[Rfam]
RNA sequence: CAACUAUCAAACCCUAUCCCCACCUCUACGUGGUGACCGCUGGGAGCUCUUCCCUAACGAAAAGCUGCAGACGGAGAAGG
Numbered sequence: 001c002a003a004c005u006a007u008c009a010a011a012c013c014c015u016a017u018c019c020c021c022a023c024c025u026c027u028a029c030g031u032g033g034u035g036a037c038c039g040c041u042g043g044g045a046g047c048u049c050u051u052c053c054c055u056a057a058c059g060a061a062a063a064g065c066u067g068c069a070g071a072c073g074g075a076g077a078a079g080g
Base pairs, nucleotide, nucleotide: 013080014079015078017076019074020073022034023033024032045066046065047064048063050061051060053059